[Rfam]
RNA sequence: GUGAAAUUGAUCACAAACAAACAUUUACCCCUUUGUUUGACCGUGAAAAAUUUCUCCCAUCCCCUUUGUUGUCAUAAGACAAAAAAGAAACCACAAACGUUUAUUUGUGGUUUCUUU
Numbered sequence: 001g002u003g004a005a006a007u008u009g010a011u012c013a014c015a016a017a018c019a020a021a022c023a024u025u026u027a028c029c030c031c032u033u034u035g036u037u038u039g040a041c042c043g044u045g046a047a048a049a050a051u052u053u054c055u056c057c058c059a060u061c062c063c064c065u066u067u068g069u070u071g072u073c074a075u076a077a078g079a080c081a082a083a084a085a086a087g088a089a090a091c092c093a094c095a096a097a098c099g100u101u102u103a104u105u106u107g108u109g110g111u112u113u114c115u116u117u
Stems, first nucleotide, its partner, number of pairs: 003054006011046004018039006070083001087114011